[Rfam]
RNA sequence: GGCUGACCGGUUUCUUCUGGUGUUAAGAGUCUCCUCACCUGUCUAGCACCAUUUGAAAUCGGUUACAA
Numbered sequence: 001g002g003c004u005g006a007c008c009g010g011u012u013u014c015u016u017c018u019g020g021u022g023u024u025a026a027g028a029g030u031c032u033c034c035u036c037a038c039c040u041g042u043c044u045a046g047c048a049c050c051a052u053u054u055g056a057a058a059u060c061g062g063u064u065a066c067a068a
Stems, first nucleotide, its partner, number of pairs: 004065001005063001007062008018051005026044003